[Rfam]
RNA sequence: GUCGCGGGCCGGGCCCCUCUGGCGAUCUGUCGAUCGCGAUGUCGGACCGUUUGA
Numbered sequence: 001g002u003c004g005c006g007g008g009c010c011g012g013g014c015c016c017c018u019c020u021g022g023c024g025a026u027c028u029g030u031c032g033a034u035c036g037c038g039a040u041g042u043c044g045g046a047c048c049g050u051u052u053g054a
Stems, first nucleotide, its partner, number of pairs: 006048002009045004022037006
RNA: terC RNA
Organism: Mesorhizobium australicum